Record summary:
A member of the RNA family "Metazoan signal recognition particle RNA" from Zootermopsis nevadensis, 292 nucleotides long.
[Rfam]
RNA sequence: GCUGGGAGUGGUGACCCACCCCUGUAAUCCAGCUACUUGGAGGCUAAGUGUUGAGAAUGACUUGAGGUUGGGAGUUCUGGUGUGCUGUGUCCCACAUUGACUGGACGUCCGCGCUAAGCUCUGUAUCAAUAUGGGCACCCUGGGGGAGCCCGGGGUGGCCAGGUUAGUUAAGGAGGGGCGGACCGGGCCAGAGAGGAAACUCAACAGCCAGAAAGUCCCCGUGUAGAGCUGUGAUGGGAUCGCGCAUGAAGUGUGGGAGCUGCUUUAUGGCAGACCGAAAGUCACCUGCGAU
Numbered sequence: 001g002c003u004g005g006g007a008g009u010g011g012u013g014a015c016c017c018a019c020c021c022c023u024g025u026a027a028u029c030c031a032g033c034u035a036c037u038u039g040g041a042g043g044c045u046a047a048g049u050g051u052u053g054a055g056a057a058u059g060a061c062u063u064g065a066g067g068u069u070g071g072g073a074g075u076u077c078u079g080g081u082g083u084g085c086u087g088u089g090u091c092c093c094a095c096a097u098u099g100a101c102u103g104g105a106c107g108u109c110c111g112c113g114c115u116a117a118g119c120u121c122u123g124u125a126u127c128a129a130u131a132u133g134g135g136c137a138c139c140c141u142g143g144g145g146g147a148g149c150c151c152g153g154g155g156u157g158g159c160c161a162g163g164u165u166a167g168u169u170a171a172g173g174a175g176g177g178g179c180g181g182a183c184c185g186g187g188c189c190a191g192a193g194a195g196g197a198a199a200c201u202c203a204a205c206a207g208c209c210a211g212a213a214a215g216u217c218c219c220c221g222u223g224u225a226g227a228g229c230u231g232u233g234a235u236g237g238g239a240u241c242g243c244g245c246a247u248g249a250a251g252u253g254u255g256g257g258a259g260c261u262g263c264u265u266u267a268u269g270g271c272a273g274a275c276c277g278a279a280a281g282u283c284a285c286c287u288g289c290g291a292u
Stems, first nucleotide, its partner, number of pairs: 001044003004023003008019004028041003047292001049290003053286001059283005066276004072271001077270003082265001084263002087260002091257007102248002106244003109238002112236002115233002117230010128165003132161003136157009168172001175219005184211001186209003193202003

Overview: The family's RNA type in Rfam is non-coding RNA gene. Rfam describes the family as follows. The signal recognition particle (SRP) is a universally conserved ribonucleoprotein. It is involved in the co-translational targeting of proteins to membranes. The organism belongs to Zootermopsis, within Eukaryota.